[Rfam]
RNA: Streptococcus sRNA SpF59 (ldcC RNA)
RNA sequence: UGACCAUCCCUCUGGUGAGGGAUCGAGGCUACACGGACGGCCGGGUCAGAUGCCGA
Numbered sequence: 001u002g003a004c005c006a007u008c009c010c011u012c013u014g015g016u017g018a019g020g021g022a023u024c025g026a027g028g029c030u031a032c033a034c035g036g037a038c039g040g041c042c043g044g045g046u047c048a049g050a051u052g053c054c055g056a
Stems, first nucleotide, its partner, number of pairs: 001048005006023006